[Rfam]
Shown here is a 117-nucleotide RNA sequence from Gemmobacter lutimaris, a member of the family "Alphaproteobacterial ar14". Taxonomically the source falls in Gemmobacter (Bacteria, Pseudomonadati, Rhodobacterales, Paracoccaceae). It is annotated as a small RNA. Pairs were carried over by alignment from the consensus structure.
RNA sequence: AACAGGUUCAUGGCCCCUCCUCCUCCCUGGGCCAUGGAAAACGCGGCGCCCCCUCCUCCUCCCUGGGGUGUCGCACCGAAACAGCCGCCCCUCCUCCUCCCUGGGCGGAUGUUGAAA
Numbered sequence: 001a002a003c004a005g006g007u008u009c010a011u012g013g014c015c016c017c018u019c020c021u022c023c024u025c026c027c028u029g030g031g032c033c034a035u036g037g038a039a040a041a042c043g044c045g046g047c048g049c050c051c052c053c054u055c056c057u058c059c060u061c062c063c064u065g066g067g068g069u070g071u072c073g074c075a076c077c078g079a080a081a082c083a084g085c086c087g088c089c090c091c092u093c094c095u096c097c098u099c100c101c102u103g104g105g106c107g108g109a110u111g112u113u114g115a116a117a
Base pairs, nucleotide, nucleotide: 007038008037009036010035011034012033013032014031015030016029043074044073045072046071047070048069049068050067051066052065081112082111083110085108086107087106088105089104090103